[Rfam]
RNA sequence: GGGCACAGACCAGGCAAGAUGUUGGCAUAGCUGAUUUACACUCUGUGGUCAGCUCUGUCGCAUAUUGCCCCCUCUGGGCCCA
Number, nucleotide and partner (000 for none) at each position: 001g000002g000003g000004c000005a000006c076007a075008g074009a073010c000011c000012a000013g069014g068015c067016a066017a065018g000019a063020u062021g061022u000023u000024g059025g058026c057027a056028u000029a054030g053031c052032u000033g000034a000035u000036u000037u000038a000039c000040a000041c000042u000043c000044u000045g000046u000047g000048g000049u000050c000051a000052g031053c030054u029055c000056u027057g026058u025059c024060g000061c021062a020063u019064a000065u017066u016067g015068c014069c013070c000071c000072c000073u009074c008075u007076g006077g000078g000079c000080c000081c000082a000